The family of this 120-nucleotide sequence is "LOOT RNA".
[Rfam]
RNA sequence: GACCUAAUCCGCCCUCGGCGGUAUGGUUGUUUGAAAAUCCAUUAGGAAUAUAAAGCUCGUCGUCAGAGCACUAUUCCUAGUGGUCGGUACUGGAAACGGUAUCGGGUAGCCUUGGCUAUC
Numbered sequence: 001g002a003c004c005u006a007a008u009c010c011g012c013c014c015u016c017g018g019c020g021g022u023a024u025g026g027u028u029g030u031u032u033g034a035a036a037a038u039c040c041a042u043u044a045g046g047a048a049u050a051u052a053a054a055g056c057u058c059g060u061c062g063u064c065a066g067a068g069c070a071c072u073a074u075u076c077c078u079a080g081u082g083g084u085c086g087g088u089a090c091u092g093g094a095a096a097c098g099g100u101a102u103c104g105g106g107u108a109g110c111c112u113u114g115g116c117u118a119u120c
Stems, first nucleotide, its partner, number of pairs: 001028004009021005039083011052072001055069004085104008105120006
Dot-bracket structure: ((((....(((((...)))))...))))..........(((((((((((..(..((((.......))))..)))))))))))).((((((((....))))))))((((((....))))))